[Rfam]
RNA sequence: UGGCUGUAAUGGUCGUUUGGUAGGAGGCACUUUUAAUGCUCUACUUACUAUUCCAUUUCCGUCAGAUCCCCCUAGCGGCGCCCAGUGCGAAUGCCGCGGUGGCCGCCCACUCGCUCGGGUAACCAGCGAUGCUGCGUGCGGCCCUAAGCAAUGAAGAUAACACUUGAGGGAGGCUUCACUCUGCAGAGAUAUCUUCACCGUCGCAUGGCGUGCUGGAUUACGAUCGCUAGGGGCUUGGGAUAGUGGGUUGAGCUGAGGAUGUCCACAUCGCUCAUU
Numbered sequence: 001u002g003g004c005u006g007u008a009a010u011g012g013u014c015g016u017u018u019g020g021u022a023g024g025a026g027g028c029a030c031u032u033u034u035a036a037u038g039c040u041c042u043a044c045u046u047a048c049u050a051u052u053c054c055a056u057u058u059c060c061g062u063c064a065g066a067u068c069c070c071c072c073u074a075g076c077g078g079c080g081c082c083c084a085g086u087g088c089g090a091a092u093g094c095c096g097c098g099g100u101g102g103c104c105g106c107c108c109a110c111u112c113g114c115u116c117g118g119g120u121a122a123c124c125a126g127c128g129a130u131g132c133u134g135c136g137u138g139c140g141g142c143c144c145u146a147a148g149c150a151a152u153g154a155a156g157a158u159a160a161c162a163c164u165u166g167a168g169g170g171a172g173g174c175u176u177c178a179c180u181c182u183g184c185a186g187a188g189a190u191a192u193c194u195u196c197a198c199c200g201u202c203g204c205a206u207g208g209c210g211u212g213c214u215g216g217a218u219u220a221c222g223a224u225c226g227c228u229a230g231g232g233g234c235u236u237g238g239g240a241u242a243g244u245g246g247g248u249u250g251a252g253c254u255g256a257g258g259a260u261g262u263c264c265a266c267a268u269c270g271c272u273c274a275u276u
Base pairs, nucleotide, nucleotide: 001015002014003013004012018274019273020272023269024268027264029262030261032259033258039252040251041250044247045246046245047244048243049242050241051240052239053238054237055236070233071232073229074228075227076226077225079222080221082216083215084214085213086212087211088210089209091206092205093204094203096201097200098199099198101143103141104140105139106138107134108131111129112128113127114126115125117124118123144148152197153196154195155194156193157192158191163188164187165186170181171180172179

About this RNA
This 276-nucleotide RNA from Thyridium curvatum belongs to the Rfam family "Fungal signal recognition particle RNA". By type it is a non-coding RNA gene. Lineage of the source: Eukaryota > Opisthokonta > saccharomyceta > Sordariomycetidae > Thyridium. It scores 152 bits against the family's covariance model.